[Rfam]
Rfam assigns this 58-nucleotide RNA from Leptonychotes weddellii to the family "U7 small nuclear RNA". The family has 49 seed sequences and 10,439 matches in Rfam 15.1.
RNA sequence: AAGUUUUAUUUCUCUUUUACUUUUUUUAAGUAGGCUCCACACCCAGUGUGGAGCCCAA
Numbered sequence: 001a002a003g004u005u006u007u008a009u010u011u012c013u014c015u016u017u018u019a020c021u022u023u024u025u026u027u028a029a030g031u032a033g034g035c036u037c038c039a040c041a042c043c044c045a046g047u048g049u050g051g052a053g054c055c056c057a058a
Stems, first nucleotide, its partner, number of pairs: 033055010

Background: Rfam describes the family as follows. Animal histone pre-mRNAs are spliced by a different mechanism than nuclear pre-mRNAs and self-splicing introns. This processing involves the U7 snRNP, which contains only one RNA species: U7. A search with the family's covariance model found it, with a score of 36 bits. NCBI's taxonomy places the organism under Eukaryota, Metazoa, Laurasiatheria, Lobodontini, Leptonychotes.